RNA sequence: UUUAGACUGCUGCGUUGGUGACUGCCGAACAUAGUUUGAUGAUCUAUGCUUGUGGUAAAAGGGAAUAAGCGACUUUGUGUGGUAGUAGACCGAGCUUGUACUCGGAAACGGAAACGCGAAGGGCAAUUACCCACCUGGUUUUUCCAGGUCACAAACUGAGGUAAAACGGCGUAGCGGUUGCCCU
Numbered sequence: 001u002u003u004a005g006a007c008u009g010c011u012g013c014g015u016u017g018g019u020g021a022c023u024g025c026c027g028a029a030c031a032u033a034g035u036u037u038g039a040u041g042a043u044c045u046a047u048g049c050u051u052g053u054g055g056u057a058a059a060a061g062g063g064a065a066u067a068a069g070c071g072a073c074u075u076u077g078u079g080u081g082g083u084a085g086u087a088g089a090c091c092g093a094g095c096u097u098g099u100a101c102u103c104g105g106a107a108a109c110g111g112a113a114a115c116g117c118g119a120a121g122g123g124c125a126a127u128u129a130c131c132c133a134c135c136u137g138g139u140u141u142u143u144c145c146a147g148g149u150c151a152c153a154a155a156c157u158g159a160g161g162u163a164a165a166a167c168g169g170c171g172u173a174g175c176g177g178u179u180g181c182c183c184u
Stems, first nucleotide, its partner, number of pairs: 005179011018167002035155004040151006061132003065128001069124002073121007085109002090105005
A member of the RNA family "6S / SsrS RNA" from Gloeothece citriformis, 184 nucleotides long. The match comes from Rfam's covariance-model search (89 bits). NCBI's taxonomy places the organism under Bacteria, Cyanophyceae, Oscillatoriophycideae, Gloeothece, Gloeothece citriformis. E. coli 6S RNA was the first non coding RNA to be sequenced, but its function was unknown until recently. It consists of 184 nucleotides that fold into an extended hairpin structure with a large single-stranded internal bulge. The 6S RNA specifically associates with RNA polymerase holoenzyme containing the sigma70 specificity factor. This interaction represses expression from a sigma70-dependent promoter during stationary phase. 6S RNA homologs have recently been identified in most bacterial genomes. Many Gram-positive species have two copies of 6S RNA. In Bacillus subtilis, both copies appear to interact with RNA polymerase holoenzyme containing the housekeeping sigma factor and be expressed during different stages of growth. In many proteobacteria, 6S RNA may be processed from a transcript encoding homologs of the E. coli YgfA protein which is a putative 5-formyltetrahydrofolate cycloligase activity.